[Rfam]
RNA sequence: UUUUGCGUCGGUGAAGCGGGAUCGGUCGUCGCCGAUCUCGGCGAGCACCCGGGCGCCGGUGAGUGAGCCCAGCCCUGGCAAG
Numbered sequence: 001u002u003u004u005g006c007g008u009c010g011g012u013g014a015a016g017c018g019g020g021a022u023c024g025g026u027c028g029u030c031g032c033c034g035a036u037c038u039c040g041g042c043g044a045g046c047a048c049c050c051g052g053g054c055g056c057c058g059g060u061g062a063g064u065g066a067g068c069c070c071a072g073c074c075c076u077g078g079c080a081a082g
Stems, first nucleotide, its partner, number of pairs: 008044003012040002018038002021036006055079003061075001063073002
The record is an 82-nucleotide RNA, which matches "Actinobacteria sRNA Ms_AS-4" in Rfam. By type it is a small RNA. The literature on the family includes a 2013 paper in RNA by Li et al., "Identification of small RNAs in Mycobacterium smegmatis using heterologous Hfq".